[Rfam]
RNA: Alphaproteobacterial ar14
Organism: Rhizobium sp. RU36D
RNA sequence: UUUUACGGCACUCUACCCACUUCCCAAGAGUGCCAAUCGGGCAGCGACACUCCUCCUCCAAGUCGCUGCUCACCAAUCAAAGCCUGCCGCACCCUCCCGCGGCAGGCUUUUUUG
Numbered sequence: 001u002u003u004u005a006c007g008g009c010a011c012u013c014u015a016c017c018c019a020c021u022u023c024c025c026a027a028g029a030g031u032g033c034c035a036a037u038c039g040g041g042c043a044g045c046g047a048c049a050c051u052c053c054u055c056c057u058c059c060a061a062g063u064c065g066c067u068g069c070u071c072a073c074c075a076a077u078c079a080a081a082g083c084c085u086g087c088c089g090c091a092c093c094c095u096c097c098c099g100c101g102g103c104a105g106g107c108u109u110u111u112u113u114g
Base pairs, nucleotide, nucleotide: 007034008033009032010031011030012029013028014027039071040070041069042068043067044066045065046064047063048062080109081108082107083106084105085104086103087102088101089100090099